[Rfam]
RNA sequence: GGGGGCGACCUGGCUUCGACGGGGAUUACAAAACUCAAGGUGCAUGCCGAGGUGUCAGCGAACCUCGUACCCACUAGCUGAAAACUAUAGUUGCAAACGACGACAACUACGCUUUAGCCGCUUAAUGGCUAACUGUUGCUUCUGAGCGUCACCGGUAGGGAGUUCAACAGUCAUAUACGGAGACUCGCGUGUAAGGGUGUUUACCCCCCAAGCGUUAAACUUUAAGUAAACUCGCCCUAAGCCUCCUGUCAGUCGGAAAAGCUUUGGGUUAACUCAUAGACUGACUAAGCAUGUAGUACCAAGAGCAGAGGAUUUUCGGACGCGGGUUCGAUUCCCGCCGCCUCCACCA
Numbered sequence: 001g002g003g004g005g006c007g008a009c010c011u012g013g014c015u016u017c018g019a020c021g022g023g024g025a026u027u028a029c030a031a032a033a034c035u036c037a038a039g040g041u042g043c044a045u046g047c048c049g050a051g052g053u054g055u056c057a058g059c060g061a062a063c064c065u066c067g068u069a070c071c072c073a074c075u076a077g078c079u080g081a082a083a084a085c086u087a088u089a090g091u092u093g094c095a096a097a098c099g100a101c102g103a104c105a106a107c108u109a110c111g112c113u114u115u116a117g118c119c120g121c122u123u124a125a126u127g128g129c130u131a132a133c134u135g136u137u138g139c140u141u142c143u144g145a146g147c148g149u150c151a152c153c154g155g156u157a158g159g160g161a162g163u164u165c166a167a168c169a170g171u172c173a174u175a176u177a178c179g180g181a182g183a184c185u186c187g188c189g190u191g192u193a194a195g196g197g198u199g200u201u202u203a204c205c206c207c208c209c210a211a212g213c214g215u216u217a218a219a220c221u222u223u224a225a226g227u228a229a230a231c232u233c234g235c236c237c238u239a240a241g242c243c244u245c246c247u248g249u250c251a252g253u254c255g256g257a258a259a260a261g262c263u264u265u266g267g268g269u270u271a272a273c274u275c276a277u278a279g280a281c282u283g284a285c286u287a288a289g290c291a292u293g294u295a296g297u298a299c300c301a302a303g304a305g306c307a308g309a310g311g312a313u314u315u316u317c318g319g320a321c322g323c324g325g326g327u328u329c330g331a332u333u334c335c336c337g338c339c340g341c342c343u344c345c346a347c348c349a
Stems, first nucleotide, its partner, number of pairs: 001345007020318008034305003039300004043293005048067005055081005114132007133170006140162004145156001147154001149183002152180002186214003190210002199232001201230002234269004239264004244257003248285007322338005
The record is a 349-nucleotide RNA sequence from Aliikangiella marina, which matches "transfer-messenger RNA" in Rfam. Rfam links the family to the GO term RNA catabolic process. Bacterial tmRNA, also known as 10Sa RNA or SsrA, is named for its dual tRNA and mRNA-like properties. Its role is to liberate the mRNA from a stalled ribosome. To accomplish this part of the tmRNA is used as a reading frame that ends in a translation stop signal. The broken mRNA is replaced in the ribosome by the tmRNA and translation of the tmRNA leads to addition of a proteolysis tag to the incomplete protein enabling recognition by a protease. It scores 216 bits against the family's covariance model. By type it is a non-coding RNA gene. The base pairs follow the family's consensus structure, which is taken from published work.